This 73-nucleotide sequence from Trifolium medium belongs to the Rfam family "MIR5272 microRNA precursor family". Rfam 15.1 lists 271 matches to the family in 4 species. NCBI's taxonomy places the organism under Eukaryota, Viridiplantae, Spermatophyta, Fabaceae, Trifolium.
Nucleotides: 073
Stems, first nucleotide, its partner, number of pairs: 011060002014057004021052002025048004030044002032041002
Number, partner (000 for none) and nucleotide at each position: 001000u002000u003000u004000g005000a006000a007000u008000u009000g010000a011060a012059u013000u014057g015056a016055u017054u018000u019000a020000u021052g022051u023000u024000u025048g026047g027046a028045u029000a030044c031043a032041u033040u034000a035000c036000g037000u038000a039000a040033a041032a042000g043031u044030g045028a046027u047026u048025c049000u050000u051022a052021u053000c054017a055016a056015u057014u058000u059012a060011u061000a062000u063000u064000g065000u066000u067000u068000g069000g070000a071000u072000a073000g